[Rfam]
RNA sequence: ACCGGCCACGAGCGCCCGAGCGGCGCCCAUGGCCUUGGACACAUCACUGUGCCAUGGGAAGAACGUGGCACAUCAGGGCGUU
Numbered sequence: 001a002c003c004g005g006c007c008a009c010g011a012g013c014g015c016c017c018g019a020g021c022g023g024c025g026c027c028c029a030u031g032g033c034c035u036u037g038g039a040c041a042c043a044u045c046a047c048u049g050u051g052c053c054a055u056g057g058g059a060a061g062a063a064c065g066u067g068g069c070a071c072a073u074c075a076g077g078g079c080g081u082u
Stems, first nucleotide, its partner, number of pairs: 004034005010028001012026005049071008

nrdJ RNA: an 82-nucleotide RNA from Streptomyces sp. S4.7.
Taxonomically the source falls in Streptomyces (Bacteria, Bacillati, Actinomycetota, Kitasatosporales).
It is annotated as a small RNA.